Record summary:
Shown here is a 206-nucleotide sequence from Qingrenia yutianensis, a member of the family "pemK RNA". A search with the family's covariance model found it, with a score of 48 bits.

RNA sequence: ACAAUGAUACUUCUACCCAGCCACAGUCCGAGCGGAUAGCAAUUCAGGGUUCCCGCAAAAGCAUAGCUUUUGUUGGAAAAGAGAACAAUCGCCUGAUAAGCGAUGCCUUUGCCGACAGGCAAAGCGAGCCCAAAGGCGAAUUGUGAACGCCGUCGCAGGCAAUGGGGGUAGCUCAGUCGGAUGGCGGAGAGGUGAAAUUCCUAUGG
Numbered sequence: 001a002c003a004a005u006g007a008u009a010c011u012u013c014u015a016c017c018c019a020g021c022c023a024c025a026g027u028c029c030g031a032g033c034g035g036a037u038a039g040c041a042a043u044u045c046a047g048g049g050u051u052c053c054c055g056c057a058a059a060a061g062c063a064u065a066g067c068u069u070u071u072g073u074u075g076g077a078a079a080a081g082a083g084a085a086c087a088a089u090c091g092c093c094u095g096a097u098a099a100g101c102g103a104u105g106c107c108u109u110u111g112c113c114g115a116c117a118g119g120c121a122a123a124g125c126g127a128g129c130c131c132a133a134a135g136g137c138g139a140a141u142u143g144u145g146a147a148c149g150c151c152g153u154c155g156c157a158g159g160c161a162a163u164g165g166g167g168g169u170a171g172c173u174c175a176g177u178c179g180g181a182u183g184g185c186g187g188a189g190a191g192g193u194g195a196a197a198u199u200c201c202u203a204u205g206g
Base pairs, nucleotide, nucleotide: 012203013171014170015169016168017167018166172189173188174187176185177184178183190202191201192200